RT-5 RNA: a 104-nucleotide sequence.
Rfam classes the family as a small RNA.
[Rfam]
RNA sequence: UUGCGCCUGCAAAGGAUGCAGCAAGCCCUGUAUUACGGUUCUGCAGGCAACUGGAGCUUGUAUCAUCUCGUAUCUUGGCAAGAGUGCCAAUUCAAAAUCUUUCC
Dot-bracket structure: ....(((((((..[[.[[..[[[[[[.[........[[[[.)))))))]]]].].]]]]]]..]].]]......((((((....))))))..............
Record summary: It is one of the family's seed sequences.